The record is a 356-nucleotide RNA sequence from Carex littledalei, which matches "Plant signal recognition particle RNA" in Rfam. The family's RNA type in Rfam is non-coding RNA gene.

[Rfam]
RNA sequence: GCCGAGCUCAGUAGCGUGAGCUUGUAACCUAAGCAGGGGCACUGGCCACUGGAUGACUUGGACGGUUGGUUCUACUUCUGAGGCCGGAUCUGAUUUCGCUAUCAGUUGGCCCGCCCGUUCCAAGUUGGGCGUUGAUCUAAUCGGGUCGGGCAAAAGGCCUGACUCAAGUGGAUCCCUAGAGAGGAAGGGAAUGCGCGAGGCUGGCUUUAAAUUAAUCUGGCAAGCUGUAUAAAGCUUAAAUUGCUCUUAAACAGAGCAGCGAAUACCUCCCACUCUCAACUUUGGAAAGGAUAACGGGCUCGUGCGGUUCAGAUCCACAAAGGUCCUAGGAGUGUUCCCAUCGGACGGUCAUCCUU
Numbered sequence: 001g002c003c004g005a006g007c008u009c010a011g012u013a014g015c016g017u018g019a020g021c022u023u024g025u026a027a028c029c030u031a032a033g034c035a036g037g038g039g040c041a042c043u044g045g046c047c048a049c050u051g052g053a054u055g056a057c058u059u060g061g062a063c064g065g066u067u068g069g070u071u072c073u074a075c076u077u078c079u080g081a082g083g084c085c086g087g088a089u090c091u092g093a094u095u096u097c098g099c100u101a102u103c104a105g106u107u108g109g110c111c112c113g114c115c116c117g118u119u120c121c122a123a124g125u126u127g128g129g130c131g132u133u134g135a136u137c138u139a140a141u142c143g144g145g146u147c148g149g150g151c152a153a154a155a156g157g158c159c160u161g162a163c164u165c166a167a168g169u170g171g172a173u174c175c176c177u178a179g180a181g182a183g184g185a186a187g188g189g190a191a192u193g194c195g196c197g198a199g200g201c202u203g204g205c206u207u208u209a210a211a212u213u214a215a216u217c218u219g220g221c222a223a224g225c226u227g228u229a230u231a232a233a234g235c236u237u238a239a240a241u242u243g244c245u246c247u248u249a250a251a252c253a254g255a256g257c258a259g260c261g262a263a264u265a266c267c268u269c270c271c272a273c274u275c276u277c278a279a280c281u282u283u284g285g286a287a288a289g290g291a292u293a294a295c296g297g298g299c300u301c302g303u304g305c306g307g308u309u310c311a312g313a314u315c316c317a318c319a320a321a322g323g324u325c326c327u328a329g330g331a332g333u334g335u336u337c338c339c340a341u342c343g344g345a346c347g348g349u350c351a352u353c354c355u356u
Stems, first nucleotide, its partner, number of pairs: 001040003004023007028037003051354008060346001063343002067340002069337001072334001076331005082325004086316008096307003100304002106302001108300006115290002118287005123281007131273002134174006141167001143165009176181001183270003187266001192263001194261003201254003
Overview:
The match comes from Rfam's covariance-model search (173 bits). Lineage of the source: Eukaryota > Streptophytina > Euphyllophyta > Mesangiospermae > Carex subgen. Euthyceras. Clan: SRP clan.